[Rfam]
Shown here is a 155-nucleotide RNA sequence from Collinsella sp. An2, a member of the family "FMN riboswitch aptamer (RFN element)". Taxonomically the source falls in Collinsella (Bacteria, Bacillati, Coriobacteriia, Coriobacteriales). The family has 146 seed sequences and 6,230 matches in Rfam 15.1.

RNA sequence: GCACAGUUUCAGGGUUGGGUGAAAUUCCCUACCGGCGGUAACUGGUCUCGCGUCGAACACAUCACGCCAAACGCCAGAAGCCCGCGACCCGCGAAAGCGGCUGACCCGGUGAAAGUCCGGGGCCGACGGUACAGUCCGGAUGGAAGAAACGGAGG
Dot-bracket structure: ...(.(((((......(((.......))).[[((((((...........................................))))...((........))....(((((.......)))))..)).(((....]]))).......))))).)...